[Rfam]
Nucleotides: 079
Base pairs, nucleotide, nucleotide: 012079013078014077016075018073019072021033022032023031045065046064047063049061050060051059052058053057
Number, partner (000 for none) and nucleotide at each position: 001000u002000a003000c004000u005000a006000c007000c008000a009000a010000g011000c012079c013078c014077u015000a016075u017000c018073u019072c020000c021033a022032c023031c024000u025000c026000c027000a028000c029000g030000u031023g032022g033021u034000c035000a036000c037000c038000g039000c040000u041000g042000g043000a044000a045065g046064u047063u048000c049061u050060u051059u052058c053057u054000u055000a056000a057053a058052g059051a060050a061049a062000a063047g064046g065045u066000g067000c068000a069000g070000a071000c072019g073018a074000a075016g076000a077014a078013g079012g
Rfam assigns this 79-nucleotide RNA sequence from Hermetia illucens to the family "drz-agam-1 ribozyme". A search with the family's covariance model found it, with a score of 38 bits. The family has 7 seed sequences and 10,507 matches in Rfam 15.1. For this family Rfam cites "Widespread occurrence of self-cleaving ribozymes" (Webb et al., Science, 2009).